[Rfam]
mir-155 microRNA precursor family: a 72-nucleotide sequence from Monodelphis domestica. Taxonomically the source falls in Monodelphis (Eukaryota, Gnathostomata, Dipnotetrapodomorpha, Metatheria). Gene Ontology terms of the family: miRNA-mediated post-transcriptional gene silencing and RISC complex. The family's consensus secondary structure was predicted with RNAalifold.

Nucleotides: 072
Stems, first nucleotide, its partner, number of pairs: 004069011020055004025050003
Number, partner (000 for none) and nucleotide at each position: 001000u002000u003000g004069u005068u006067a007066a008065u009064g010063c011062u012061a013060a014059u015000c016000g017000u018000g019000a020055u021054a022053g023052g024000g025050g026049u027048u028000u029000u030000u031000c032000u033000u034000u035000u036000u037000g038000a039000c040000u041000u042000c043000g044000a045000a046000c047000u048027g049026a050025c051000u052023c053022c054021u055020a056000c057000a058000u059014g060013u061012u062011a063010g064009c065008a066007u067006u068005a069004a070000c071000a072000g